Annotation: The record is a 78-nucleotide sequence from Clostridium manihotivorum, which matches "pemK RNA" in Rfam.
RNA sequence: AUAAUGAUACUUUCGGAUAGUCGAGAUUAAGUUCCAGAGUCCGACUCGCCAUAAUGGGGAGAGGUUUAAAACCUAUGA
Numbered sequence: 001a002u003a004a005u006g007a008u009a010c011u012u013u014c015g016g017a018u019a020g021u022c023g024a025g026a027u028u029a030a031g032u033u034c035c036a037g038a039g040u041c042c043g044a045c046u047c048g049c050c051a052u053a054a055u056g057g058g059g060a061g062a063g064g065u066u067u068a069a070a071a072c073c074u075a076u077g078a
Stems, first nucleotide, its partner, number of pairs: 012075001013044006045061003049057002062074003
Dot-bracket structure: ...........(((((((....................))))))(((.((.....)).)))(((.......))))...

The family's RNA type in Rfam is cis-regulatory element. The match comes from Rfam's covariance-model search (49 bits).